[Rfam]
RNA sequence: GGCCUUUGUGUUGCCCGUUCAUUCCUGUCCAGAAUGAAUGUGGUGUCAAAAAAGGCAAACAGGAAUUCUUGCUCAAACUCUUAGGGAACUGGGUUUGUACCUUUUUCCUCUGUUUUUGCAAGGACAAAA
Numbered sequence: 001g002g003c004c005u006u007u008g009u010g011u012u013g014c015c016c017g018u019u020c021a022u023u024c025c026u027g028u029c030c031a032g033a034a035u036g037a038a039u040g041u042g043g044u045g046u047c048a049a050a051a052a053a054g055g056c057a058a059a060c061a062g063g064a065a066u067u068c069u070u071g072c073u074c075a076a077a078c079u080c081u082u083a084g085g086g087a088a089c090u091g092g093g094u095u096u097g098u099a100c101c102u103u104u105u106u107c108c109u110c111u112g113u114u115u116u117u118g119c120a121a122g123g124a125c126a127a128a129a
Stems, first nucleotide, its partner, number of pairs: 002056006009048002012045004016040008068122004074118004082112005087106002091101002
The family of this 129-nucleotide sequence from Climacteris rufus is "Small nucleolar RNA SNORA13".
Gene Ontology terms of the family: RNA processing and nucleolus.
The family has 50 seed sequences and 1,034 matches in Rfam 15.1.
A search with the family's covariance model found it, with a score of 89 bits.